Overview:
The record is an 82-nucleotide RNA sequence from Ameiurus melas, which matches "mir-7563 microRNA precursor family" in Rfam. The base pairs follow the family's consensus structure, which was predicted with RNAalifold. It scores 84 bits against the family's covariance model. Lineage of the source: Eukaryota > Bilateria > Craniata > Gnathostomata > Ameiurus. Rfam links the family to the GO terms RISC complex and miRNA-mediated post-transcriptional gene silencing.
RNA sequence: ACUGCGUACUUGCCUACUGUAGUCCUAUAGUAGGUAAAAUACAUGUAUCUUGGCUACUAUAUAGUAGGUAAGUACGCGGUUU
Numbered sequence: 001a002c003u004g005c006g007u008a009c010u011u012g013c014c015u016a017c018u019g020u021a022g023u024c025c026u027a028u029a030g031u032a033g034g035u036a037a038a039a040u041a042c043a044u045g046u047a048u049c050u051u052g053g054c055u056a057c058u059a060u061a062u063a064g065u066a067g068g069u070a071a072g073u074a075c076g077c078g079g080u081u082u
Stems, first nucleotide, its partner, number of pairs: 001080015017064005028059006035052003039048003